Rfam assigns this 86-nucleotide sequence from Biostraticola tofi to the family "CyaR/Rye RNA".
For this family Rfam cites "Identification of novel small RNAs using comparative genomics and microarrays" (Wassarman et al., Genes Dev, 2001).
This sRNA was originally identified in a large scale screen of E. coli.
It scores 62 bits against the family's covariance model.
Rfam classes the family as a small RNA.
RNA sequence: ACGCUGAAAUAACAUCAUAACAAUGACCCAGCUACACCAGGAACCACCUCUUUUGCCAGCUCAUCCUCCCUUGAGCUGGCUUUUUA
Numbered sequence: 001a002c003g004c005u006g007a008a009a010u011a012a013c014a015u016c017a018u019a020a021c022a023a024u025g026a027c028c029c030a031g032c033u034a035c036a037c038c039a040g041g042a043a044c045c046a047c048c049u050c051u052u053u054u055g056c057c058a059g060c061u062c063a064u065c066c067u068c069c070c071u072u073g074a075g076c077u078g079g080c081u082u083u084u085u086a
Stems, first nucleotide, its partner, number of pairs: 039052004055080009